Notes: This 121-nucleotide sequence from Oryctolagus cuniculus belongs to the Rfam family "Small nucleolar RNA SNORA26". The family's RNA type in Rfam is H/ACA-box small nucleolar RNA. The snoRNA HBI-6 belong to the H/ACA family of snoRNAs, guiding the pseudouridylation of position U4522 if the 28S rRNA. HBI-6 is the human orthologue of mouse MBI-6 snoRNA. The organism belongs to Oryctolagus, within Eukaryota. A reference for the family is Huttenhofer et al. (2001), "RNomics: an experimental approach that identifies 201 candidates for novel, small, non-messenger RNAs in mouse", EMBO J. Gene Ontology terms of the family: nucleolus and RNA processing.
[Rfam]
RNA sequence: GUGCCCUUUUACAGCUAACACAGUGCUUUAAGAGGCUAACACAGAAGGGGAAACUAAGUCUCCACAAAACCCAGAGAAGAGAGUGUGACCUCUUCUUUGGAUCCUGUCUGGAGUCACAGCU
Numbered sequence: 001g002u003g004c005c006c007u008u009u010u011a012c013a014g015c016u017a018a019c020a021c022a023g024u025g026c027u028u029u030a031a032g033a034g035g036c037u038a039a040c041a042c043a044g045a046a047g048g049g050g051a052a053a054c055u056a057a058g059u060c061u062c063c064a065c066a067a068a069a070c071c072c073a074g075a076g077a078a079g080a081g082a083g084u085g086u087g088a089c090c091u092c093u094u095c096u097u098u099g100g101a102u103c104c105u106g107u108c109u110g111g112a113g114u115c116a117c118a119g120c121u
Base pairs, nucleotide, nucleotide: 002051004049005048006047007046008045009044010043014040016038017037019035021032058115060113061112062111063110064109071100072099073098074097075096076095077094079092080091081090083089084088